This 186-nucleotide sequence from Mycoplana dimorpha belongs to the Rfam family "Rhizobiales sRNA Atu_C9".
[Rfam]
RNA sequence: UCGCAACGCAAGGAGGUAAGCCCAUGAGACUCACACAUUCCUUGAAUGUUCUGAUGAUCAGUGCCGCGUUCCUCUUCGUCGUCAGCAUGAUUUUCAUCUGACGGCGUGCGUCGUCCAAAUGGACCAAACCACAUAAAAACACCCAGUCAAUGAAAGCGCAUGACCCCGACCGGCGUCAUGCGCUUU
Numbered sequence: 001u002c003g004c005a006a007c008g009c010a011a012g013g014a015g016g017u018a019a020g021c022c023c024a025u026g027a028g029a030c031u032c033a034c035a036c037a038u039u040c041c042u043u044g045a046a047u048g049u050u051c052u053g054a055u056g057a058u059c060a061g062u063g064c065c066g067c068g069u070u071c072c073u074c075u076u077c078g079u080c081g082u083c084a085g086c087a088u089g090a091u092u093u094u095c096a097u098c099u100g101a102c103g104g105c106g107u108g109c110g111u112c113g114u115c116c117a118a119a120u121g122g123a124c125c126a127a128a129c130c131a132c133a134u135a136a137a138a139a140c141a142c143c144c145a146g147u148c149a150a151u152g153a154a155a156g157c158g159c160a161u162g163a164c165c166c167c168g169a170c171c172g173g174c175g176u177c178a179u180g181c182g183c184u185u186u
Stems, first nucleotide, its partner, number of pairs: 015050004026042001028040002153186012